[Rfam]
RNA sequence: AAAAAAAUAAUGCCGAGUUCCUGCUUCUCAUGGGGAAACGGGGGAACCAUACUUUGGGUGAAUUGAUCUCGCUUUAGAGUGAUCAUAGGGAACCUUCAACCGAACCCUUAGCUAACCUCGUAGGCACUGGAAGGGGCUUUA
Numbered sequence: 001a002a003a004a005a006a007a008u009a010a011u012g013c014c015g016a017g018u019u020c021c022u023g024c025u026u027c028u029c030a031u032g033g034g035g036a037a038a039c040g041g042g043g044g045a046a047c048c049a050u051a052c053u054u055u056g057g058g059u060g061a062a063u064u065g066a067u068c069u070c071g072c073u074u075u076a077g078a079g080u081g082a083u084c085a086u087a088g089g090g091a092a093c094c095u096u097c098a099a100c101c102g103a104a105c106c107c108u109u110a111g112c113u114a115a116c117c118u119c120g121u122a123g124g125c126a127c128u129g130g131a132a133g134g135g136g137c138u139u140u141a
Stems, first nucleotide, its partner, number of pairs: 011126004018037005038121006049054001056107003064085004088101002
Dot-bracket structure: ..........((((...(((((..........)))))((((((.....(....).(((.....((((..............))))..((..........))...)))........)))))).))))...............

This 141-nucleotide sequence from Paenibacillus albiflavus belongs to the Rfam family "c-di-AMP riboswitch aptamer (ydaO/yuaA leader)". It scores 70 bits against the family's covariance model. Rfam 15.1 lists 7,607 matches to the family in 2,262 species.